[Rfam]
RNA sequence: UCGUGGGUCGGCCUGCCGCCGAGACUGCGCAGCGCAGAACGUUGGCGGGCCGGGGGACGCCGCCGCCACAUUCCCCGCGGGCGGCGGACCGGUCCGGGGGGCGUGCGGACGCCUCCCGGACUGCG
Numbered sequence: 001u002c003g004u005g006g007g008u009c010g011g012c013c014u015g016c017c018g019c020c021g022a023g024a025c026u027g028c029g030c031a032g033c034g035c036a037g038a039a040c041g042u043u044g045g046c047g048g049g050c051c052g053g054g055g056g057a058c059g060c061c062g063c064c065g066c067c068a069c070a071u072u073c074c075c076c077g078c079g080g081g082c083g084g085c086g087g088a089c090c091g092g093u094c095c096g097g098g099g100g101g102c103g104u105g106c107g108g109a110c111g112c113c114u115c116c117c118g119g120a121c122u123g124c125g
Base pairs, nucleotide, nucleotide: 002123006090007089008088009052010051011050012049013048014047015046016045017044018043053058060087061086062085063084064083065082066081067080091122092121093120094119095118096117097116098115099114100113101112102111103110